[Rfam]
RNA: Small nucleolar RNA psi28S-1192
RNA sequence: AAUAGGUCCGAUCUAAUUCUACAUAAUGGUUUAUUUAUGUAGUCUCGCUUCUGGACCAAAUUAAAUCCCAUCCUUUAUUAUCCUUGUGCUUGUGAUAUCAUUCCAGUUCAAUGCACACGAGAAACGUAAAAGAACAUAG
Numbered sequence: 001a002a003u004a005g006g007u008c009c010g011a012u013c014u015a016a017u018u019c020u021a022c023a024u025a026a027u028g029g030u031u032u033a034u035u036u037a038u039g040u041a042g043u044c045u046c047g048c049u050u051c052u053g054g055a056c057c058a059a060a061u062u063a064a065a066u067c068c069c070a071u072c073c074u075u076u077a078u079u080a081u082c083c084u085u086g087u088g089c090u091u092g093u094g095a096u097a098u099c100a101u102u103c104c105a106g107u108u109c110a111a112u113g114c115a116c117a118c119g120a121g122a123a124a125c126g127u128a129a130a131a132g133a134a135c136a137u138a139g
Stems, first nucleotide, its partner, number of pairs: 005057006019042008027033002071133002074130005083121006